RNA sequence: GUCCUGCGAGACUUCUUUUCAGCAGUGAACAAAAAUAUAUAUUCACUGCUGGAAAAGUCUCGCGGA
Dot-bracket structure: ...((.((((((((..(((((((.(((((.((.....).).))))).))))))))))))))).)).
The family of this 66-nucleotide RNA sequence from Apis cerana is "mir-3747 microRNA precursor family". NCBI's taxonomy places the organism under Eukaryota, Arthropoda, Pancrustacea, Apini, Apis cerana. A search with the family's covariance model found it, with a score of 67 bits. The family's consensus secondary structure was predicted with RNAalifold.